RNA: Alphaproteobacterial sRNA BjrC1505
RNA sequence: UUCCUGCCAUUUACGGUUGAUUAAGCUUUCGCGUUUACAACCGGUACCGUCCUCGUUUGGACACUGAGUGGCUCCUGUCCACUCUGUUUGACGCCUCCCUGUUAUCAACUUCAAAGCCGCCGGCAACGGCGGCUCUUUUUUU
Numbered sequence: 001u002u003c004c005u006g007c008c009a010u011u012u013a014c015g016g017u018u019g020a021u022u023a024a025g026c027u028u029u030c031g032c033g034u035u036u037a038c039a040a041c042c043g044g045u046a047c048c049g050u051c052c053u054c055g056u057u058u059g060g061a062c063a064c065u066g067a068g069u070g071g072c073u074c075c076u077g078u079c080c081a082c083u084c085u086g087u088u089u090g091a092c093g094c095c096u097c098c099c100u101g102u103u104a105u106c107a108a109c110u111u112c113a114a115a116g117c118c119g120c121c122g123g124c125a126a127c128g129g130c131g132g133c134u135c136u137u138u139u140u141u142u
Base pairs, nucleotide, nucleotide: 004044005043006042007016008015017039022037023036024035025034026033049062050061051060052059066084067083068082069081070080071079090103091102092101093100113136115134116133117132118131119130120129121128122127